[Rfam]
The record is a 142-nucleotide RNA from Cebus imitator, which matches "Small nucleolar RNA SNORA8" in Rfam. It scores 133 bits against the family's covariance model. The base pairs follow the family's consensus structure, which was predicted with RNAfold. Rfam describes the family as follows. ACA8 is a member of the H/ACA class of snoRNA that guide the sites of modification of uridines to pseudouridines. Clan: SNORA8 clan.
RNA sequence: AGGAUUAAAACAUGGUAUCUGCACUCAGCCGUUUACUCCGGCUGGGGUGUUCAAAGGUCAGUGCCAUAGAAAUUCAGUAUCUGGCAUCGUUGGUUUUCUCGGCUUUGUGCUUGUUAAACCUGGUAUUCCUGUUGAUACAAUA
Number, nucleotide and partner (000 for none) at each position: 001a000002g064003g000004a062005u061006u060007a000008a000009a000010a000011c000012a000013u000014g000015g000016u000017a058018u057019c056020u055021g050022c049023a048024c047025u046026c045027a043028g042029c041030c040031g039032u000033u000034u000035a000036c000037u000038c000039c031040g030041g029042c028043u027044g000045g026046g025047g024048u023049g022050u021051u000052c000053a000054a000055a020056g019057g018058u017059c000060a006061g005062u004063g000064c002065c000066a000067u131068a130069g129070a000071a127072a126073u125074u123075c122076a121077g120078u000079a000080u000081c000082u000083g111084g110085c109086a108087u107088c000089g000090u000091u000092g000093g000094u000095u000096u000097u000098c000099u000100c000101g000102g000103c000104u000105u000106u000107g087108u086109g085110c084111u083112u000113g000114u000115u000116a000117a000118a000119c000120c077121u076122g075123g074124u000125a073126u072127u071128c000129c069130u068131g067132u000133u000134g000135a000136u000137a000138c000139a000140a000141u000142a000